RNA: transfer-messenger RNA
Organism: Variovorax sp. PBL-E5
RNA sequence: GGGGCUGCACUGGUUUCGACGCGGGUUCGGAAUCGCAGCGGGGCAUGUCGAGCUGAAUGCGCUCGUAAAACAGAUUCAAACAAACUAACUGCAAACGACGAACGUUUCGCACUCGCCGCUUAAUUGCCGGUGAGCUUUGCAACAGCAGGCCGAUGGGCUGGGCAAGGGGGCGCUGGAGCAAUCCGACGCCUCCCGGCUGCAAAGAUAAUCUACAUGGGCUGGUCCUGAUCCGGGUACCUUGGGUCGGGACGAGAAAAUAGGGUGCUGGCGGCCGGUGUAGCGUGCGACUGCGCGACACCGGUGGCGAGACCUAAAUCAGAUCGCUAAACAUGUAGAUCUGCGCGACGAAGGCUUGCGGACGGGGGUUCAAAUCCCCCCAGCUCCACCA
Numbered sequence: 001g002g003g004g005c006u007g008c009a010c011u012g013g014u015u016u017c018g019a020c021g022c023g024g025g026u027u028c029g030g031a032a033u034c035g036c037a038g039c040g041g042g043g044c045a046u047g048u049c050g051a052g053c054u055g056a057a058u059g060c061g062c063u064c065g066u067a068a069a070a071c072a073g074a075u076u077c078a079a080a081c082a083a084a085c086u087a088a089c090u091g092c093a094a095a096c097g098a099c100g101a102a103c104g105u106u107u108c109g110c111a112c113u114c115g116c117c118g119c120u121u122a123a124u125u126g127c128c129g130g131u132g133a134g135c136u137u138u139g140c141a142a143c144a145g146c147a148g149g150c151c152g153a154u155g156g157g158c159u160g161g162g163c164a165a166g167g168g169g170g171c172g173c174u175g176g177a178g179c180a181a182u183c184c185g186a187c188g189c190c191u192c193c194c195g196g197c198u199g200c201a202a203a204g205a206u207a208a209u210c211u212a213c214a215u216g217g218g219c220u221g222g223u224c225c226u227g228a229u230c231c232g233g234g235u236a237c238c239u240u241g242g243g244u245c246g247g248g249a250c251g252a253g254a255a256a257a258u259a260g261g262g263u264g265c266u267g268g269c270g271g272c273c274g275g276u277g278u279a280g281c282g283u284g285c286g287a288c289u290g291c292g293c294g295a296c297a298c299c300g301g302u303g304g305c306g307a308g309a310c311c312u313a314a315a316u317c318a319g320a321u322c323g324c325u326a327a328a329c330a331u332g333u334a335g336a337u338c339u340g341c342g343c344g345a346c347g348a349a350g351g352c353u354u355g356c357g358g359a360c361g362g363g364g365g366u367u368c369a370a371a372u373c374c375c376c377c378c379a380g381c382u383c384c385a386c387c388a
Base pairs, nucleotide, nucleotide: 001384002383003382004381005380006379007378020357021356022355023354024353025352026351027350033345034344035343036342038341039340040339041338042337044332045331046330047329048328049065050064051063052062053061054078055077056076057075058074112134113133114132115131116130117129118128135204136203137202138201139200140199149219150218151217153215222250223249224248225247226246227245228244229243230242232266233265237261268305269304271302272301273300274299275298276297277296280293281292282291284324285323286322287321290316361377362376363375364374365373